[Rfam]
This 102-nucleotide RNA sequence from Diplocarpon coronariae belongs to the Rfam family "Small nucleolar RNA Z13/snr52".
RNA sequence: GAGCUUGAUAUGAUGAAAGACUUUCGGAUGUUAAAUCAUAUUGCCUCCGAGAGCGCAAAACCAUGUGGAGAUUUUCCGUUGCCUUCCUUCUGAGCAAAAGCA
Numbered sequence: 001g002a003g004c005u006u007g008a009u010a011u012g013a014u015g016a017a018a019g020a021c022u023u024u025c026g027g028a029u030g031u032u033a034a035a036u037c038a039u040a041u042u043g044c045c046u047c048c049g050a051g052a053g054c055g056c057a058a059a060a061c062c063a064u065g066u067g068g069a070g071a072u073u074u075u076c077c078g079u080u081g082c083c084u085u086c087c088u089u090c091u092g093a094g095c096a097a098a099a100g101c102a
Stems, first nucleotide, its partner, number of pairs: 003101003025078004
NCBI's taxonomy places the organism under Eukaryota, saccharomyceta, Pezizomycotina, Drepanopezizaceae, Diplocarpon. By type it is a C/D-box small nucleolar RNA. The match comes from Rfam's covariance-model search (84 bits).